U4atac minor spliceosomal RNA: a 159-nucleotide sequence from Drosophila grimshawi. Rfam classes the family as a spliceosomal small nuclear RNA. From the family's description: U4atac is an essential component of the minor U12-type spliceosome complex which is required for removal of the rarer class of eukaryotic introns (AT-AC, U12-type). A reference for the family is Lorkovic et al. (2005), "Evolutionary conservation of minor U12-type spliceosome between plants and humans", RNA.
RNA sequence: ACCUUCCUUGUCUUGGGGAGCAGAAAUGUCCAAUGAACGUAUAGUGAGGACAUUGCUGCUGACACCAAUGAUAUUAACAUCAGCCCCCGUUUGCUGAUCAUCUCGUGAUUAGCUUUCGGAAUUUUUGGAAAAAGGCCCCCUUACUUUAUAGGGGGUCGU
Dot-bracket structure: ....(((((.....)))))((((.(((((((.....((.....))..))))))).))))...........................(((....((((((.......))))))....)))........................................